[Rfam]
RNA sequence: UUGCCUCCUAGUGCAAGUAAUCAAGAAUAGGCCAAUUAGAUUUCACACAGCCUAUCCUGGAUUACUUGAACCAGGUCACAG
Numbered sequence: 001u002u003g004c005c006u007c008c009u010a011g012u013g014c015a016a017g018u019a020a021u022c023a024a025g026a027a028u029a030g031g032c033c034a035a036u037u038a039g040a041u042u043u044c045a046c047a048c049a050g051c052c053u054a055u056c057c058u059g060g061a062u063u064a065c066u067u068g069a070a071c072c073a074g075g076u077c078a079c080a081g
Base pairs, nucleotide, nucleotide: 002080003079007075008074009073011071012070014068015067016066017065018064019063020062021061022060024058025057027055028054029053030052031051032050
Shown here is an 81-nucleotide sequence from Pelusios castaneus, a member of the family "mir-26 microRNA precursor family".
On this family, see Lagos-Quintana et al., Science 2001: "Identification of novel genes coding for small expressed RNAs".
Lineage of the source: Eukaryota > Gnathostomata > Amniota > Pleurodira > Pelusios.